TPP riboswitch aptamer (THI element): a 108-nucleotide RNA from Salibacterium qingdaonense. Lineage of the source: Bacteria > Bacillota > Bacilli > Bacillaceae > Salibacterium.
[Rfam]
RNA sequence: GUUAUCCACUAGGGGCGCUGAAAACAGCUGAGAUGAUGCCUGCCCGGCAUCGGUCCCUCAGAACCUGAUAUGGCUAGUACCAUCGGAGGAAAGUGGAGUGGGCGCACA
Number, nucleotide and partner (000 for none) at each position: 001g000002u000003u000004a000005u000006c096007c095008a094009c093010u092011a058012g057013g056014g055015g000016c052017g028018c027019u026020g025021a000022a000023a000024a000025c020026a019027g018028c017029u000030g000031a000032g000033a000034u000035g051036a050037u049038g048039c047040c000041u000042g000043c000044c000045c000046g000047g039048c038049a037050u036051c035052g016053g000054u000055c014056c013057c012058u011059c000060a000061g000062a000063a000064c089065c088066u087067g000068a000069u000070a083071u082072g081073g080074c000075u000076a000077g000078u000079a000080c073081c072082a071083u070084c000085g000086g000087a066088g065089g064090a000091a000092a010093g009094u008095g007096g006097a000098g000099u000100g000101g000102g000103c000104g000105c000106a000107c000108a000
A search with the family's covariance model found it, with a score of 76 bits.